[Rfam]
RNA sequence: UUCUUAUCGAGAGAGGUCGAGGGUAAGGCCCUGUGAAGCCUCAGCAACCUGUAUAUUGUUUGGACAAGGUGCUAAUUCCUUCAAGUUUUUACUUGGAAGAUAAGAG
Numbered sequence: 001u002u003c004u005u006a007u008c009g010a011g012a013g014a015g016g017u018c019g020a021g022g023g024u025a026a027g028g029c030c031c032u033g034u035g036a037a038g039c040c041u042c043a044g045c046a047a048c049c050u051g052u053a054u055a056u057u058g059u060u061u062g063g064a065c066a067a068g069g070u071g072c073u074a075a076u077u078c079c080u081u082c083a084a085g086u087u088u089u090u091a092c093u094u095g096g097a098a099g100a101u102a103a104g105a106g
Stems, first nucleotide, its partner, number of pairs: 001106008013042005021031003025081004043073004048069002051065002054062001077098001082095005
Dot-bracket structure: ((((((((....(((((...(((.[[[[)))......)))))((((.((.((.(.......).))..))))))...(]]]](((((....)))))..)))))))))
Shown here is a 106-nucleotide sequence from Mesobacillus foraminis, a member of the family "SAM riboswitch aptamer (S box leader)". The organism belongs to Mesobacillus, within Bacteria.